[Rfam]
Shown here is an 85-nucleotide RNA from Caenorhabditis nigoni, a member of the family "SmY spliceosomal RNA".
The family's RNA type in Rfam is spliceosomal small nuclear RNA.
A reference for the family is Maroney et al. (1996), "Direct analysis of nematode cis- and trans-spliceosomes: a functional role for U5 snRNA in spliced leader addition trans-splicing and the identification of novel Sm snRNPs", RNA.
RNA sequence: UCAUUAAAUACUUGACUACAGGGCCUUUCACAAGACCCGGUGUACAAUUUUUGGAGACCCUGUCCUAUCUCUCUGGGGCAGGGUA
Numbered sequence: 001u002c003a004u005u006a007a008a009u010a011c012u013u014g015a016c017u018a019c020a021g022g023g024c025c026u027u028u029c030a031c032a033a034g035a036c037c038c039g040g041u042g043u044a045c046a047a048u049u050u051u052u053g054g055a056g057a058c059c060c061u062g063u064c065c066u067a068u069c070u071c072u073c074u075g076g077g078g079c080a081g082g083g084u085a
Stems, first nucleotide, its partner, number of pairs: 021038003025034003057084011